[Rfam]
RNA sequence: UCAAACCACUAGAGGUGUCGCAAGACUGAGAGGGGCUCAUAUUGCCCUAACUCUUCGAACCUGACCUGGGUCAUACCAGCGUAGGGAAGUGGGAACGGUCCUUC
Number, nucleotide and partner (000 for none) at each position: 001u000002c000003a000004a000005a000006c092007c091008a090009c089010u088011a054012g053013a052014g051015g000016u000017g026018u025019c024020g000021c000022a000023a000024g019025a018026c017027u000028g000029a000030g000031a000032g000033g047034g046035g045036c044037u000038c000039a000040u000041a000042u000043u000044g036045c035046c034047c033048u000049a000050a000051c014052u013053c012054u011055u000056c000057g000058a000059a000060c085061c084062u083063g082064a000065c000066c079067u078068g077069g076070g000071u000072c000073a000074u000075a000076c069077c068078a067079g066080c000081g000082u063083a062084g061085g060086g000087a000088a010089g009090u008091g007092g006093g000094a000095a000096c000097g000098g000099u000100c000101c000102u000103u000104c000
RNA: TPP riboswitch aptamer (THI element)